[Rfam]
RNA sequence: CCGUAAUCUUCAACAGUGAUUGAGAUUACUG
Numbered sequence: 001c002c003g004u005a006a007u008c009u010u011c012a013a014c015a016g017u018g019a020u021u022g023a024g025a026u027u028a029c030u031g
Stems, first nucleotide, its partner, number of pairs: 001031001003029005009024005014018001
RNA: Iron response element II